The record is a 113-nucleotide RNA from Metallibacterium scheffleri, which matches "SAM riboswitch aptamer (S box leader)" in Rfam.
The source organism's lineage runs through Bacteria, Pseudomonadota, Gammaproteobacteria, Rhodanobacteraceae and Metallibacterium.
Rfam links the family to the GO term regulation of gene expression.
About the family: The SAM riboswitch is found upstream of a number of genes which code for proteins involved in methionine or cysteine biosynthesis in Gram-positive bacteria.

Nucleotides: 113
Base pairs, nucleotide, nucleotide: 003111004110005109006108007107008106013042014041015040016039017038021031022030023029025077026076027075028074043069044068045067046066048065049064051061052060053059054058073105078102079101080100081099083097084096085095086094087093088092
Number, partner (000 for none) and nucleotide at each position: 001000a002000c003111c004110u005109c006108a007107u008106c009000c010000a011000g012000a013042u014041c015040g016039g017038c018000g019000u020000a021031g022030g023029g024000a025077c026076a027075g028074g029023c030022c031021c032000a033000g034000u035000g036000a037000c038017g039016c040015c041014g042013a043069g044068g045067c046066a047000g048065c049064c050000a051061g052060c053059g054058c055000g056000a057000u058054g059053c060052g061051c062000a063000a064049g065048g066046u067045g068044c069043c070000a071000a072000u073105u074028c075027c076026u077025g078102c079101g080100g081099a082000g083097c084096g085095c086094g087093c088092a089000u090000g091000g092088u093087g094086c095085g096084c097083g098000a099081u100080c101079c102078g103000g104000a105073a106008g107007a108006u109005g110004g111003g112000c113000g